Rfam assigns this 97-nucleotide sequence from Fusibacter sp. A1 to the family "TPP riboswitch aptamer (THI element)". The literature on the family includes a 2010 paper in RNA by Kulshina et al., "Thermodynamic analysis of ligand binding and ligand binding-induced tertiary structure formation by the thiamine pyrophosphate riboswitch". Gene Ontology term of the family: thiamine pyrophosphate binding. The source organism's lineage runs through Bacteria, Bacillati, Clostridia, Fusibacteraceae and Fusibacter. It scores 59 bits against the family's covariance model.
[Rfam]
RNA sequence: AUUUUGUAUCAGGGGUGCCGAAAGGCUGAGAGGCGUAUGCUAACCCUAAGAACCUGUUUGGUUAAGACCAGCGUAGGGAGUAUACUAAUUGCGAGUG
Numbered sequence: 001a002u003u004u005u006g007u008a009u010c011a012g013g014g015g016u017g018c019c020g021a022a023a024g025g026c027u028g029a030g031a032g033g034c035g036u037a038u039g040c041u042a043a044c045c046c047u048a049a050g051a052a053c054c055u056g057u058u059u060g061g062u063u064a065a066g067a068c069c070a071g072c073g074u075a076g077g078g079a080g081u082a083u084a085c086u087a088a089u090u091g092c093g094a095g096u097g
Base pairs, nucleotide, nucleotide: 006085007084008083009082011047012046013045014044017026018025019024033040034039053077054076055075056074058071059070060069061068